[Rfam]
RNA: Plastid-psbA-4 3UTR RNA
Organism: Apium graveolens
RNA sequence: AUAAAAAAGGAGCAAUACCGCUCUCUUGAUAGAACAAGAAAGAUGUAUUGCUCCUUUUU
Numbered sequence: 001a002u003a004a005a006a007a008a009g010g011a012g013c014a015a016u017a018c019c020g021c022u023c024u025c026u027u028g029a030u031a032g033a034a035c036a037a038g039a040a041a042g043a044u045g046u047a048u049u050g051c052u053c054c055u056u057u058u059u
Stems, first nucleotide, its partner, number of pairs: 006057012021042001024039005